[Rfam]
RNA sequence: AAAAGAAAGGAGCAAUAAUCAUUUUCUUGUUCUAUCAAGAGGUUGCUAUUUCUUU
Numbered sequence: 001a002a003a004a005g006a007a008a009g010g011a012g013c014a015a016u017a018a019u020c021a022u023u024u025u026c027u028u029g030u031u032c033u034a035u036c037a038a039g040a041g042g043u044u045g046c047u048a049u050u051u052c053u054u055u
Base pairs, nucleotide, nucleotide: 009055010054011053012052014050015049016048017047021044024041025040026039027038028037029036